[Rfam]
RNA: aspS RNA
Organism: Coriobacteriales bacterium OH1046
RNA sequence: GCAACGUCGUGCCGUCUACGCGGCGUUGCCGUCUGCUGGGGAGCCGCCCGCACCGGCACGGGGCGGCAGGGACGAGGGGA
Numbered sequence: 001g002c003a004a005c006g007u008c009g010u011g012c013c014g015u016c017u018a019c020g021c022g023g024c025g026u027u028g029c030c031g032u033c034u035g036c037u038g039g040g041g042a043g044c045c046g047c048c049c050g051c052a053c054c055g056g057c058a059c060g061g062g063g064c065g066g067c068a069g070g071g072a073c074g075a076g077g078g079g080a
Stems, first nucleotide, its partner, number of pairs: 001029011031073004036069002043067007